About this RNA
The record is a 116-nucleotide sequence from Candidatus Frankia alpina, which matches "Group II catalytic intron D1-D4-2" in Rfam. From the family's description: Group II introns are found in rRNA, tRNA and mRNA of organelles in fungi, plants and protists, and also in mRNA in bacteria. The pairing is the family consensus, mapped onto this sequence. It scores 105 bits against the family's covariance model. The source organism's lineage runs through Bacteria, Actinomycetota, Actinomycetes, Frankiales and Frankia.

[Rfam]
RNA sequence: GAUGGCUGGCCCUUCGGAGCCGCCCUGCGGGGGGAGGCUUCAAACCACCUCAUGCUGCGUUAGCUGAAGACUGUCGUGGUGAGCGAUGAGGAAAAGGCGCCCGUGAGGCGUCAGGU
Dot-bracket structure: ((.((.....)).))((((((.((((....)))).))))))....(.((((((((.(((.(((.......))).))).)).....))))))....((((((.....))))))..).